[Rfam]
RNA sequence: ACUUAAAAAAGGCAAACUUAUCGAAAGGUAAGGACGCAAAGCCACGAGUCUAAGGCAUAUGCUAGGAUAGUCGGGUUACUGUA
Numbered sequence: 001a002c003u004u005a006a007a008a009a010a011g012g013c014a015a016a017c018u019u020a021u022c023g024a025a026a027g028g029u030a031a032g033g034a035c036g037c038a039a040a041g042c043c044a045c046g047a048g049u050c051u052a053a054g055g056c057a058u059a060u061g062c063u064a065g066g067a068u069a070g071u072c073g074g075g076u077u078a079c080u081g082u083a
Stems, first nucleotide, its partner, number of pairs: 012037002017032006040077004045073003048068003055062002
c-di-GMP-I riboswitch aptamer: an 83-nucleotide RNA from Anaerocolumna jejuensis. The match comes from Rfam's covariance-model search (83 bits). Pairs were carried over by alignment from the consensus structure, which is taken from published work.